Plasmodium RNA of unknown function RUF2: a 158-nucleotide RNA from Plasmodium knowlesi. NCBI's taxonomy places the organism under Eukaryota, Alveolata, Haemosporida, Plasmodium, Plasmodium knowlesi. On this family, see Chakrabarti et al., RNA 2007: "Structural RNAs of known and unknown function identified in malaria parasites by comparative genomics and RNA analysis". By type it is a small RNA. Rfam's curators put it in the seed alignment.

[Rfam]
RNA sequence: ACCAUUGAACGAUUCGAAGAGUUAUUAUUGUGAAUAUUUUUUUCCAAAAAAUAUGUCCAAAAAUAUUAGCUUCAAAUCUGUUCAUAUAACAAAUGUAUAUACGGUGGCUUUUUAAAUUUUUAAUUUUAGAAAUGUCAAUCCAUAUAUAUCACAGAGAA
Numbered sequence: 001a002c003c004a005u006u007g008a009a010c011g012a013u014u015c016g017a018a019g020a021g022u023u024a025u026u027a028u029u030g031u032g033a034a035u036a037u038u039u040u041u042u043u044c045c046a047a048a049a050a051a052u053a054u055g056u057c058c059a060a061a062a063a064u065a066u067u068a069g070c071u072u073c074a075a076a077u078c079u080g081u082u083c084a085u086a087u088a089a090c091a092a093a094u095g096u097a098u099a100u101a102c103g104g105u106g107g108c109u110u111u112u113u114a115a116a117u118u119u120u121u122a123a124u125u126u127u128a129g130a131a132a133u134g135u136c137a138a139u140c141c142a143u144a145u146a147u148a149u150c151a152c153a154g155a156g157a158a
Stems, first nucleotide, its partner, number of pairs: 006084006021070004026065004035053006095149007103141002105137004109132008
Dot-bracket structure: .....((((((.........((((.((((.....((((((.......))))))........)))).))))........))))))..........(((((((.((((((((((((((........)))))))).))))..)).))))))).........